[Rfam]
RNA sequence: UCCACCAGAUCGCCGAAUUUCCUCGGUGGGAAAACGGGGGAACCGUUUUUCUGGGGUUAAUCCCGGCAUUGUUCUAGAUGCCGGGUAGGGCCAUCCUGGGUCCGCACCCGUCAGCUAACCCCGUAGGCGUGGAAGGAGGUGGAA
Numbered sequence: 001u002c003c004a005c006c007a008g009a010u011c012g013c014c015g016a017a018u019u020u021c022c023u024c025g026g027u028g029g030g031a032a033a034a035c036g037g038g039g040g041a042a043c044c045g046u047u048u049u050u051c052u053g054g055g056g057u058u059a060a061u062c063c064c065g066g067c068a069u070u071g072u073u074c075u076a077g078a079u080g081c082c083g084g085g086u087a088g089g090g091c092c093a094u095c096c097u098g099g100g101u102c103c104g105c106a107c108c109c110g111u112c113a114g115c116u117a118a119c120c121c122c123g124u125a126g127g128c129g130u131g132g133a134a135g136g137a138g139g140u141g142g143a144a
Base pairs, nucleotide, nucleotide: 011129012128013127014126018033019032020031021030022029034124035123036122037121038120039119044053045052054109055108056107062085063084064083065082066081067080068079069078088103089102090101091100

c-di-AMP riboswitch aptamer (ydaO/yuaA leader): a 144-nucleotide RNA sequence from Neomoorella humiferrea.